This 97-nucleotide RNA from Drosophila pseudoobscura belongs to the Rfam family "mir-289 microRNA precursor family".
RNA sequence: AGUUUACAGUGAAAUAAAUAUUUAAGUGGAGCCUGCGACUGGGACUCCAGCUCUCCGACUGGGCUAACUCACUUGAGCGUUUGUUGGCACGUAAAAG
Number, nucleotide and partner (000 for none) at each position: 001a000002g000003u095004u094005u093006a092007c091008a000009g090010u089011g000012a000013a085014a084015u083016a082017a081018a080019u079020a000021u077022u076023u075024a074025a073026g072027u071028g070029g069030a000031g065032c000033c063034u062035g000036c000037g000038a000039c000040u000041g000042g000043g053044a052045c000046u000047c000048c000049a000050g000051c000052u044053c043054u000055c000056c000057g000058a000059c000060u000061g000062g034063g033064c000065u031066a000067a000068c000069u029070c028071a027072c026073u025074u024075g023076a022077g021078c000079g019080u018081u017082u016083g015084u014085u013086g000087g000088c000089a010090c009091g007092u006093a005094a004095a003096a000097g000